[Rfam]
RNA: Group II catalytic intron D1-D4-1
Nucleotides: 085
Stems, first nucleotide, its partner, number of pairs: 002024001004023008038045002047085003056078002059075002
Number, partner (000 for none) and nucleotide at each position: 001000c002024a003000g004023c005022u006021c007020c008019c009018g010017c011016a012000g013000c014000g015000a016011u017010g018009c019008g020007g021006g022005a023004g024002u025000c026000g027000g028000a029000c030000a031000u032000g033000a034000g035000g036000a037000a038045u039044c040000a041000g042000c043000a044039g045038a046000g047085g048084g049083c050000a051000u052000a053000g054000u055000a056078g057077c058000g059075c060074c061000a062000u063000g064000a065000g066000g067000c068000g069000a070000g071000c072000c073000g074060g075059g076000a077057g078056u079000a080000g081000c082000u083049g084048c085047c